[Rfam]
RNA sequence: UAAAUCAAACCAUAAUGUCACACACGUUCCGACACAUUAGCCUGGGUGCCCGCAGGCUUCAUUGCCACGACAGUGCACAAUGAACAACGGGUUGGCUGAUGGGGUGCGUGGAGGCUUAAC
Numbered sequence: 001u002a003a004a005u006c007a008a009a010c011c012a013u014a015a016u017g018u019c020a021c022a023c024a025c026g027u028u029c030c031g032a033c034a035c036a037u038u039a040g041c042c043u044g045g046g047u048g049c050c051c052g053c054a055g056g057c058u059u060c061a062u063u064g065c066c067a068c069g070a071c072a073g074u075g076c077a078c079a080a081u082g083a084a085c086a087a088c089g090g091g092u093u094g095g096c097u098g099a100u101g102g103g104g105u106g107c108g109u110g111g112a113g114g115c116u117u118a119a120c
Stems, first nucleotide, its partner, number of pairs: 023110005029104002035101008048092005
t44 RNA: a 120-nucleotide sequence from Pseudohongiella nitratireducens. The source organism's lineage runs through Bacteria, Pseudomonadati, Pseudomonadota, Gammaproteobacteria and Pseudohongiella. By type it is a small RNA. On this family, see Tjaden et al., Nucleic Acids Res 2002: "Transcriptome analysis of Escherichia coli using high-density oligonucleotide probe arrays". The family's consensus secondary structure was predicted with LocARNA.